[Rfam]
Shown here is a 72-nucleotide RNA sequence from Aedes aegypti, a member of the family "mir-929 microRNA precursor family". The sequence is in the family's curated seed alignment. The family has 18 seed sequences and 147 matches in Rfam 15.1. On this family, see Li et al., BMC Genomics 2009: "Direct sequencing and expression analysis of a large number of miRNAs in Aedes aegypti and a multi-species survey of novel mosquito miRNAs". Taxonomically the source falls in Stegomyia (Eukaryota, Protostomia, Culicoidea, Culicinae).
RNA sequence: UGGUCCAAAUUGACUCUAGUAGGGAGUCCUUGUGUACGAGUGACUCCCUAACGGAGUCAGAUUGAACCCGGU
Numbered sequence: 001u002g003g004u005c006c007a008a009a010u011u012g013a014c015u016c017u018a019g020u021a022g023g024g025a026g027u028c029c030u031u032g033u034g035u036a037c038g039a040g041u042g043a044c045u046c047c048c049u050a051a052c053g054g055a056g057u058c059a060g061a062u063u064g065a066a067c068c069c070g071g072u
Stems, first nucleotide, its partner, number of pairs: 010060008020050009